[Rfam]
RNA: RpsF leader
RNA sequence: GUCACUUACUUUACCGUUCCUUGCUUCCUCUGGACGACCGGGCCAAACGUGGAAGCUGAAUAAUCCGUAAGGAGCAAACAUG
Numbered sequence: 001g002u003c004a005c006u007u008a009c010u011u012u013a014c015c016g017u018u019c020c021u022u023g024c025u026u027c028c029u030c031u032g033g034a035c036g037a038c039c040g041g042g043c044c045a046a047a048c049g050u051g052g053a054a055g056c057u058g059a060a061u062a063a064u065c066c067g068u069a070a071g072g073a074g075c076a077a078a079c080a081u082g
Base pairs, nucleotide, nucleotide: 016075017074018073019072020071021070022069023056024055025054026053027052028051031045032044033043